[Rfam]
Background: Rfam assigns this 118-nucleotide RNA sequence from Paenibacillus sp. FSL H7-0357 to the family "Bacillus sRNA ncr1015". Rfam classes the family as a small RNA. Pairs were carried over by alignment from the consensus structure, which is taken from published work.

RNA sequence: UUGUAAGAUGAAACAUUUAUGUCUAUACAUAUUAUAAAAGACGCAGACUGAUUAUAUCAUCGUGUCUGUUUAUAUGCAAUAUAGAAGAACCUGAUAAAUUACUCAGGUUCUUUUUUGA
Numbered sequence: 001u002u003g004u005a006a007g008a009u010g011a012a013a014c015a016u017u018u019a020u021g022u023c024u025a026u027a028c029a030u031a032u033u034a035u036a037a038a039a040g041a042c043g044c045a046g047a048c049u050g051a052u053u054a055u056a057u058c059a060u061c062g063u064g065u066c067u068g069u070u071u072a073u074a075u076g077c078a079a080u081a082u083a084g085a086a087g088a089a090c091c092u093g094a095u096a097a098a099u100u101a102c103u104c105a106g107g108u109u110c111u112u113u114u115u116u117g118a
Stems, first nucleotide, its partner, number of pairs: 034073005039065001041063003083114012
A reference for the family is Irnov et al. (2010), "Identification of regulatory RNAs in Bacillus subtilis", Nucleic Acids Res.